[Rfam]
RNA: Small nucleolar RNA Z122
RNA sequence: GUUGGGAAAUGAUGAUAAACCAUCGUAUUUAAUCUGAAGCAUUAGCUUUGCUGAUUCGUAUUAUUUGCACGUCAGUCUGAUCCCUUU
Numbered sequence: 001g002u003u004g005g006g007a008a009a010u011g012a013u014g015a016u017a018a019a020c021c022a023u024c025g026u027a028u029u030u031a032a033u034c035u036g037a038a039g040c041a042u043u044a045g046c047u048u049u050g051c052u053g054a055u056u057c058g059u060a061u062u063a064u065u066u067g068c069a070c071g072u073c074a075g076u077c078u079g080a081u082c083c084c085u086u087u
Stems, first nucleotide, its partner, number of pairs: 001087001004084004